[Rfam]
RNA sequence: UUAGCUCGCCAGUGCGAGGCUCGUUCCCACACAACAAGUAAUGGUGGUGCAACUCCCCCGUCCUCCCGAACGUCAUCGGGACCA
Numbered sequence: 001u002u003a004g005c006u007c008g009c010c011a012g013u014g015c016g017a018g019g020c021u022c023g024u025u026c027c028c029a030c031a032c033a034a035c036a037a038g039u040a041a042u043g044g045u046g047g048u049g050c051a052a053c054u055c056c057c058c059c060g061u062c063c064u065c066c067c068g069a070a071c072g073u074c075a076u077c078g079g080g081a082c083c084a
Stems, first nucleotide, its partner, number of pairs: 004074001005018005012050001019039003023035003043058002046056002059072003065080005
Rfam assigns this 84-nucleotide sequence from Tymovirus theobromatis to the family "Tymovirus/Pomovirus/Furovirus tRNA-like 3' UTR element". Rfam 15.1 lists 38 matches to the family in 28 species. The family's consensus secondary structure is taken from published work. Lineage of the source: Viruses > Orthornavirae > Tymoviridae > Tymovirus > Tymovirus theobromatis. A reference for the family is Colussi et al. (2014), "The structural basis of transfer RNA mimicry and conformational plasticity by a viral RNA", Nature. Gene Ontology term of the family: regulation of translation. The sequence is in the family's curated seed alignment. It is annotated as a cis-regulatory element.